[Rfam]
RNA sequence: CGCGCGGCAGGACGGAAAGACCCCGGGACCUUUACUAUAGCUUGGUAUUGGUGCUUGGAACAGUUUGUGUAGGAUAGGUGGGAGCCGGUGAACCAGGGACGCUAGUUUCUGGGGAGGCAUUGUUGAAAUACCACUCUGAUUGUUCUGGGUUCCUAACCUCGGACCGUGAUCCGGUUCAGGGACAGUGCCUGGUGGGUAGUUUAACUGGGGCGGUUGCCUCCCAAAAAGUAACGGAGGCGCCCAAAGGUUUCCUCAGCCUGGUUGGCAAUCAGGUGUCGAGUGCAAGUGCACAAGGAAGCUUAACUGUGAGACUGACGGGUCAAGCAGAUGCGAAAGCAGGGACUAGUGAUCCGGCACAUGCUUGUGGAAGCGGUGUCGCUCAACGGAUAAAAGGUACCCCGGGGAUAACAGGCUGAUCUUCCCCAAGAGUCCAUAUCGACGGGAUGGUUUGGCACCUCGAUGUCGGCUCGUCGCAUCCUGGGGCCGGAGCAGGUCCCAAGGGUUGGGCUGUUCGCCCAUUAAAGCGGCACGCGAGCUGGGUUUAGAACGUCGUGAGACAGUUCGGUCCCUAUCCGCCGCGCGCGUA
Numbered sequence: 001c002g003c004g005c006g007g008c009a010g011g012a013c014g015g016a017a018a019g020a021c022c023c024c025g026g027g028a029c030c031u032u033u034a035c036u037a038u039a040g041c042u043u044g045g046u047a048u049u050g051g052u053g054c055u056u057g058g059a060a061c062a063g064u065u066u067g068u069g070u071a072g073g074a075u076a077g078g079u080g081g082g083a084g085c086c087g088g089u090g091a092a093c094c095a096g097g098g099a100c101g102c103u104a105g106u107u108u109c110u111g112g113g114g115a116g117g118c119a120u121u122g123u124u125g126a127a128a129u130a131c132c133a134c135u136c137u138g139a140u141u142g143u144u145c146u147g148g149g150u151u152c153c154u155a156a157c158c159u160c161g162g163a164c165c166g167u168g169a170u171c172c173g174g175u176u177c178a179g180g181g182a183c184a185g186u187g188c189c190u191g192g193u194g195g196g197u198a199g200u201u202u203a204a205c206u207g208g209g210g211c212g213g214u215u216g217c218c219u220c221c222c223a224a225a226a227a228g229u230a231a232c233g234g235a236g237g238c239g240c241c242c243a244a245a246g247g248u249u250u251c252c253u254c255a256g257c258c259u260g261g262u263u264g265g266c267a268a269u270c271a272g273g274u275g276u277c278g279a280g281u282g283c284a285a286g287u288g289c290a291c292a293a294g295g296a297a298g299c300u301u302a303a304c305u306g307u308g309a310g311a312c313u314g315a316c317g318g319g320u321c322a323a324g325c326a327g328a329u330g331c332g333a334a335a336g337c338a339g340g341g342a343c344u345a346g347u348g349a350u351c352c353g354g355c356a357c358a359u360g361c362u363u364g365u366g367g368a369a370g371c372g373g374u375g376u377c378g379c380u381c382a383a384c385g386g387a388u389a390a391a392a393g394g395u396a397c398c399c400c401g402g403g404g405a406u407a408a409c410a411g412g413c414u415g416a417u418c419u420u421c422c423c424c425a426a427g428a429g430u431c432c433a434u435a436u437c438g439a440c441g442g443g444a445u446g447g448u449u450u451g452g453c454a455c456c457u458c459g460a461u462g463u464c465g466g467c468u469c470g471u472c473g474c475a476u477c478c479u480g481g482g483g484c485c486g487g488a489g490c491a492g493g494u495c496c497c498a499a500g501g502g503u504u505g506g507g508c509u510g511u512u513c514g515c516c517c518a519u520u521a522a523a524g525c526g527g528c529a530c531g532c533g534a535g536c537u538g539g540g541u542u543u544a545g546a547a548c549g550u551c552g553u554g555a556g557a558c559a560g561u562u563c564g565g566u567c568c569c570u571a572u573c574c575g576c577c578g579c580g581c582g583c584g585u586a
Stems, first nucleotide, its partner, number of pairs: 001582008010574003014569002022403006028395005034200004041192002044189004050153002053150013067136001077135005084118003093112008157180003161177006203215004216238006239384001241341002247299006253279002256274006280289002304327004310321003329338003352378006360371002412453003416450001417447002420444004427437002464539001465537004469531001470528005477502002480497006504518005545563004549558003
This 586-nucleotide part of an RNA from Stackebrandtia endophytica belongs to the Rfam family "Bacterial large subunit ribosomal RNA". Taxonomically the source falls in Stackebrandtia (Bacteria, Actinomycetota, Glycomycetales, Glycomycetaceae). Pairs were carried over by alignment from the consensus structure, which is taken from published work.